The family of this 379-nucleotide part of an RNA from Apibacter mensalis is "Bacterial large subunit ribosomal RNA". The match comes from Rfam's covariance-model search (2691 bits).
[Rfam]
RNA sequence: GAUAAUGAAGGUGAGAAACCUUCACGCCGAAAAUCCAAGGUUUCCUCAGCUAUGCUAAUCAGCUGAGGGUAAGUCGGGACCUAAGGUGAAUCCGAGAGGAGUAAUCGAUGGGAAAUCGGUUAAUAUUCCGAUACCGGCUGUAAAUUCGAUGGAGUGACAGAGUAAUGACACUACCGCGUACUGACGGAAUAGUACGUUAAAGCAAGUAGGUAAAUCUGGGAUAGUAAAAUGCGUUUCGGAUGCCGAAUGUGAAAGUACCAGGAAGCUACGGUGGAAUGGAUAGUGUAGGUAAGAGCUCUCAAGAAAAACUUCUAAGGUAAGUUUACAGCGCCCGUACCAAAACCGACACAGGUGGAUGAGGAGAGUAUCCUAAGGCGCU
Numbered sequence: 001g002a003u004a005a006u007g008a009a010g011g012u013g014a015g016a017a018a019c020c021u022u023c024a025c026g027c028c029g030a031a032a033a034u035c036c037a038a039g040g041u042u043u044c045c046u047c048a049g050c051u052a053u054g055c056u057a058a059u060c061a062g063c064u065g066a067g068g069g070u071a072a073g074u075c076g077g078g079a080c081c082u083a084a085g086g087u088g089a090a091u092c093c094g095a096g097a098g099g100a101g102u103a104a105u106c107g108a109u110g111g112g113a114a115a116u117c118g119g120u121u122a123a124u125a126u127u128c129c130g131a132u133a134c135c136g137g138c139u140g141u142a143a144a145u146u147c148g149a150u151g152g153a154g155u156g157a158c159a160g161a162g163u164a165a166u167g168a169c170a171c172u173a174c175c176g177c178g179u180a181c182u183g184a185c186g187g188a189a190u191a192g193u194a195c196g197u198u199a200a201a202g203c204a205a206g207u208a209g210g211u212a213a214a215u216c217u218g219g220g221a222u223a224g225u226a227a228a229a230u231g232c233g234u235u236u237c238g239g240a241u242g243c244c245g246a247a248u249g250u251g252a253a254a255g256u257a258c259c260a261g262g263a264a265g266c267u268a269c270g271g272u273g274g275a276a277u278g279g280a281u282a283g284u285g286u287a288g289g290u291a292a293g294a295g296c297u298c299u300c301a302a303g304a305a306a307a308a309c310u311u312c313u314a315a316g317g318u319a320a321g322u323u324u325a326c327a328g329c330g331c332c333c334g335u336a337c338c339a340a341a342a343c344c345g346a347c348a349c350a351g352g353u354g355g356a357u358g359a360g361g362a363g364a365g366u367a368u369c370c371u372a373a374g375g376c377g378c379u
Stems, first nucleotide, its partner, number of pairs: 006024006025377004033357004039338002044068006053061002075334004080111002085106003089102001091100003115132005135330002138328008146317002151312005159299004166291002176197006198255001202250003209244003216239007224232002257281001259279001261277001343352002359371004
Dot-bracket structure: .....((((((.......))))))((((....((((..((...((((((...((.....)).))))))......((((.((...(((.(.(((....))).).)))...))...(((((........)))))..((.((((((((((...(((((...((((...((........((((((..........))))))(...(((....(((....(((((((.((.....)))))))))..)))...)))....).(.(.(...............).).)........))....))))........)))))...))...))))))))))))))..))....((......)).)))).((((.....))))..))))..